[Rfam]
RNA sequence: AUCGGUUUGGAACACAGACCUUAUGUAAGCAGUUUUAGUAAAGCAGUCCUCAGUUUAAGUGUUAUCCCUAGAUACCCUUCCUCAUGAGCCUCCUCCUAAGUGCGCCCAUAAGUAAUUAUCUGAAACUCAGGCCAAGUUCGCCGCGUUGAGUGGCUCAAAAAAUUAAAGGAAAUAUCUAUGUCUAACAAAAUGACUGGUUUAGUAAAAUGGUUCAACUCUGACAAAGGCUUCGGCUUCAUUUCUCCAGAAGACGGCAGCAAAGAUGUAUUCGUACAUUUCUCUGCAAUCCAGAGCAACGAUUUCAAAACUUUAGAUGAAGGCCAGAAAGUAGAGUUCACUAUCGAGAACGGUGCUAAAGGUCCAUCAGCUGGCAACGUAGUUGCUCUGUAAUUGCUGAUACUUCGCUAACACUUGCGACAGCGAUGACGGCAUUA
Numbered sequence: 001a002u003c004g005g006u007u008u009g010g011a012a013c014a015c016a017g018a019c020c021u022u023a024u025g026u027a028a029g030c031a032g033u034u035u036u037a038g039u040a041a042a043g044c045a046g047u048c049c050u051c052a053g054u055u056u057a058a059g060u061g062u063u064a065u066c067c068c069u070a071g072a073u074a075c076c077c078u079u080c081c082u083c084a085u086g087a088g089c090c091u092c093c094u095c096c097u098a099a100g101u102g103c104g105c106c107c108a109u110a111a112g113u114a115a116u117u118a119u120c121u122g123a124a125a126c127u128c129a130g131g132c133c134a135a136g137u138u139c140g141c142c143g144c145g146u147u148g149a150g151u152g153g154c155u156c157a158a159a160a161a162a163u164u165a166a167a168g169g170a171a172a173u174a175u176c177u178a179u180g181u182c183u184a185a186c187a188a189a190a191u192g193a194c195u196g197g198u199u200u201a202g203u204a205a206a207a208u209g210g211u212u213c214a215a216c217u218c219u220g221a222c223a224a225a226g227g228c229u230u231c232g233g234c235u236u237c238a239u240u241u242c243u244c245c246a247g248a249a250g251a252c253g254g255c256a257g258c259a260a261a262g263a264u265g266u267a268u269u270c271g272u273a274c275a276u277u278u279c280u281c282u283g284c285a286a287u288c289c290a291g292a293g294c295a296a297c298g299a300u301u302u303c304a305a306a307a308c309u310u311u312a313g314a315u316g317a318a319g320g321c322c323a324g325a326a327a328g329u330a331g332a333g334u335u336c337a338c339u340a341u342c343g344a345g346a347a348c349g350g351u352g353c354u355a356a357a358g359g360u361c362c363a364u365c366a367g368c369u370g371g372c373a374a375c376g377u378a379g380u381u382g383c384u385c386u387g388u389a390a391u392u393g394c395u396g397a398u399a400c401u402u403c404g405c406u407a408a409c410a411c412u413u414g415c416g417a418c419a420g421c422g423a424u425g426a427c428g429g430c431a432u433u434a
Stems, first nucleotide, its partner, number of pairs: 004020006029245001031243002043236001045235004049227002054225002061222004069215001071213002074211003080180001082178001084177001086175001094169002097166001099164002111127003140154005182197003250342002253339002262270002275329004280325004284320001287314002290311003349362002352360003365387003369382004391408003395404003422433004
Notes:
The family of this 434-nucleotide RNA sequence from Erwinia billingiae is "cspA thermoregulator". Its family is annotated with regulation of translation and response to temperature stimulus in the Gene Ontology. On this family, see Giuliodori et al., Mol Cell 2010: "The cspA mRNA is a thermosensor that modulates translation of the cold-shock protein CspA".